[Rfam]
RNA sequence: GGGGCUGAUAUUGGAUUUGACAAAAUUAUUGAAAACUGAUGUGCAUGCCGAGGAUGGUUUGCCUCGUUAAAAAACCAUAAAAAAUAGUAGCAAAACAAAAUCAAUACGCUUUAGCAGCUUAAUAAUCUGAAUAAAGCCCUUCUUUUAAACAUAUUCUCUUAAUGUUUAAUUUAUAUAGAAGGUUAAUCUAAAGAGAUCGCAACUCAAAUCUAUUUUGAAAGAUUUUUUGUUGCUAAAUAAAAACUUCAAAAUAUAUAUCUAUAAUGAGUCUAUACAUCGAUAGAUAAGAAAAGAUAAUAGACUAAGCAUGUAGUAUCUGAAGUCGUAAAAAUUUUGGACGCGGGUUCGAAUCCCGCCAGCUCCAAAA
Number, nucleotide and partner (000 for none) at each position: 001g363002g362003g361004g360005c359006u358007g357008a000009u000010a000011u000012u000013g000014g000015a000016u000017u000018u000019g000020a000021c336022a335023a334024a333025a332026u331027u330028a000029u328030u327031g000032a000033a000034a323035a000036c000037u320038g000039a318040u000041g316042u315043g000044c310045a309046u308047g307048c306049c066050g065051a064052g063053g062054a078055u077056g076057g075058u074059u073060u000061g000062c053063c052064u051065c050066g049067u000068u000069a000070a000071a000072a000073a059074a058075c057076c056077a055078u054079a000080a000081a000082a000083a000084a000085u000086a000087g000088u000089a000090g000091c000092a000093a000094a000095a000096c000097a000098a000099a000100a000101u000102c000103a000104a000105u000106a000107c000108g000109c000110u135111u134112u133113a132114g000115c129116a128117g127118c000119u000120u000121a000122a000123u000124a000125a000126u000127c117128u116129g115130a000131a000132u113133a112134a111135a110136g000137c000138c182139c181140u180141u179142c178143u177144u000145u169146u168147a167148a166149a165150c164151a163152u162153a000154u000155u196156c195157u194158c193159u192160u191161a000162a152163u151164g150165u149166u148167u147168a146169a145170u000171u000172u000173a000174u000175a000176u000177a143178g142179a141180a140181g139182g138183u000184u000185a000186a000187u000188c000189u000190a000191a160192a159193g158194a157195g156196a155197u000198c000199g233200c232201a231202a230203c229204u000205c000206a000207a000208a000209u000210c000211u000212a000213u251214u250215u249216u248217g247218a246219a000220a000221g000222a000223u000224u000225u000226u000227u000228u000229g203230u202231u201232g200233c199234u000235a000236a000237a000238u000239a000240a000241a000242a000243a000244c000245u000246u218247c217248a216249a215250a214251a213252u000253a285254u284255a000256u282257a281258u280259c279260u000261a277262u000263a000264a000265u000266g275267a000268g302269u301270c300271u299272a000273u296274a295275c266276a000277u261278c000279g259280a258281u257282a256283g000284a254285u253286a000287a000288g000289a000290a000291a000292a000293g000294a000295u274296a273297a000298u000299a271300g270301a269302c268303u000304a000305a000306g048307c047308a046309u045310g044311u000312a000313g000314u000315a042316u041317c000318u039319g000320a037321a000322g000323u034324c000325g000326u000327a030328a029329a000330a027331a026332u025333u024334u023335u022336g021337g000338a000339c000340g356341c355342g354343g353344g352345u000346u000347c000348g000349a000350a000351u000352c344353c343354c342355g341356c340357c007358a006359g005360c004361u003362c002363c001364a000365a000366a000367a000
Shown here is a 367-nucleotide RNA sequence from Buchnera aphidicola, a member of the family "transfer-messenger RNA". Its Rfam clan is "tRNA clan". NCBI's taxonomy places the organism under Bacteria, Pseudomonadati, Buchnera, Buchnera aphidicola, Buchnera aphidicola (Baizongia pistaciae). The sequence is in the family's curated seed alignment. The literature on the family includes a 1996 paper in RNA by Williams and Bartel, "Phylogenetic analysis of tmRNA secondary structure". Rfam classes the family as a non-coding RNA gene.